This 90-nucleotide RNA sequence from a Solemya pervernicosa gill symbiont belongs to the Rfam family "c-di-GMP-I riboswitch aptamer".

RNA sequence: GUCUGAAAAAGGCUACCCCGUUGAAAGGCGGGCAACGCAAAGCUACCGGUCUAAAGAGCGUGAAGACUCUAUGACAGCGGGGUUACCGGA
Numbered sequence: 001g002u003c004u005g006a007a008a009a010a011g012g013c014u015a016c017c018c019c020g021u022u023g024a025a026a027g028g029c030g031g032g033c034a035a036c037g038c039a040a041a042g043c044u045a046c047c048g049g050u051c052u053a054a055a056g057a058g059c060g061u062g063a064a065g066a067c068u069c070u071a072u073g074a075c076a077g078c079g080g081g082g083u084u085a086c087c088g089g090a
Stems, first nucleotide, its partner, number of pairs: 012038002017032006041084004046080003049075003056069003